[Rfam]
This 183-nucleotide sequence from Anaerobacterium chartisolvens belongs to the Rfam family "Lysine riboswitch aptamer".
The match comes from Rfam's covariance-model search (108 bits).

RNA sequence: UAUUAUGAUAGAGGUGCGUCUUUACAUAAGUACUCCUGCCGAUAAAAAAUGGGAUUUGUAUGAGGCAGUUGACGGAAAGGGUAAGAUGCCGAAGGAUAUAUUGACCCAUGUAAAUAUAUCCUGGUUGUACAGCUAAUAUCUGUGCAACUGUCAUCAAAUAUUUGGUGGAGCGCUAUCAGUUCG
Numbered sequence: 001u002a003u004u005a006u007g008a009u010a011g012a013g014g015u016g017c018g019u020c021u022u023u024a025c026a027u028a029a030g031u032a033c034u035c036c037u038g039c040c041g042a043u044a045a046a047a048a049a050u051g052g053g054a055u056u057u058g059u060a061u062g063a064g065g066c067a068g069u070u071g072a073c074g075g076a077a078a079g080g081g082u083a084a085g086a087u088g089c090c091g092a093a094g095g096a097u098a099u100a101u102u103g104a105c106c107c108a109u110g111u112a113a114a115u116a117u118a119u120c121c122u123g124g125u126u127g128u129a130c131a132g133c134u135a136a137u138a139u140c141u142g143u144g145c146a147a148c149u150g151u152c153a154u155c156a157a158a159u160a161u162u163u164g165g166u167g168g169a170g171c172g173c174u175a176u177c178a179g180u181u182c183g
Base pairs, nucleotide, nucleotide: 006178007177008176009175010174011173016089017088018087019086020085021084023083024082025081033071036068037067038066039065040064093122094121095120096119097118098117099116100115101114102113104111123149124148125147126146127145128144129143130142131141132140151168152167153166154165155164156163157162